A member of the RNA family "Rhizobiales sRNA Atu_C8" from Stappia taiwanensis, 117 nucleotides long. A search with the family's covariance model found it, with a score of 53 bits.

RNA sequence: GAUGGGCAUCGGGCUCAUUCUUGUAGUAGGGAAGCGCGCUGCCGGGGGGAUGUGAUCCCCUUCCCGGAACGACAGCGCGCGUCAAGGCCUCCUCGGGGGCCUUUUUUAUUGCCCGAA
Numbered sequence: 001g002a003u004g005g006g007c008a009u010c011g012g013g014c015u016c017a018u019u020c021u022u023g024u025a026g027u028a029g030g031g032a033a034g035c036g037c038g039c040u041g042c043c044g045g046g047g048g049g050a051u052g053u054g055a056u057c058c059c060c061u062u063c064c065c066g067g068a069a070c071g072a073c074a075g076c077g078c079g080c081g082u083c084a085a086g087g088c089c090u091c092c093u094c095g096g097g098g099g100c101c102u103u104u105u106u107u108a109u110u111g112c113c114c115g116a117a
Stems, first nucleotide, its partner, number of pairs: 009026001029113002032110001034080008045061006085102007